[Rfam]
RNA sequence: GCGGCCGGGGCGGCGGGCGGUCAAGGAGUAAAGAACGUGGGGAAAGGACCCUCCCAACCAGCCAAACCUCUCGUACGUCACCCACGGGGGUGAAGUCGGACGAUCUGGCUGGCGCGUCGGCGGAGCGGCCGGGCAGGCUCGGCCCGGAGAGCUUCACGAGACCGAACUUCAGACAAUCCGCAGACAUGCGACGGCCCCCGCCGGGACUUGCACUCCCGGGCGAGGGCCUGACCACCAAGGAAGACAGGCCUUCCCU
Numbered sequence: 001g002c003g004g005c006c007g008g009g010g011c012g013g014c015g016g017g018c019g020g021u022c023a024a025g026g027a028g029u030a031a032a033g034a035a036c037g038u039g040g041g042g043a044a045a046g047g048a049c050c051c052u053c054c055c056a057a058c059c060a061g062c063c064a065a066a067c068c069u070c071u072c073g074u075a076c077g078u079c080a081c082c083c084a085c086g087g088g089g090g091u092g093a094a095g096u097c098g099g100a101c102g103a104u105c106u107g108g109c110u111g112g113c114g115c116g117u118c119g120g121c122g123g124a125g126c127g128g129c130c131g132g133g134c135a136g137g138c139u140c141g142g143c144c145c146g147g148a149g150a151g152c153u154u155c156a157c158g159a160g161a162c163c164g165a166a167c168u169u170c171a172g173a174c175a176a177u178c179c180g181c182a183g184a185c186a187u188g189c190g191a192c193g194g195c196c197c198c199c200g201c202c203g204g205g206a207c208u209u210g211c212a213c214u215c216c217c218g219g220g221c222g223a224g225g226g227c228c229u230g231a232c233c234a235c236c237a238a239g240g241a242a243g244a245c246a247g248g249c250c251u252u253c254c255c256u
Stems, first nucleotide, its partner, number of pairs: 007236002010233001017074003078093006104173005193228005199222003203216003239254005

About this RNA
Streptomyces sRNA 4677: a 256-nucleotide RNA sequence from Streptomyces poonensis. From the family's description: Located in the intergenic region between anti-sigma factor SCO4677 gene and a putative regulatory protein gene SCO4676. scr4677 expression requires the SCO4677 activity and scr4677 sRNA itself seem to affect the levels of the SCO4676-associated transcripts. The match comes from Rfam's covariance-model search (66 bits). For this family Rfam cites "Complex intra-operonic dynamics mediated by a small RNA in Streptomyces coelicolor" (Hindra et al., PLoS One, 2014).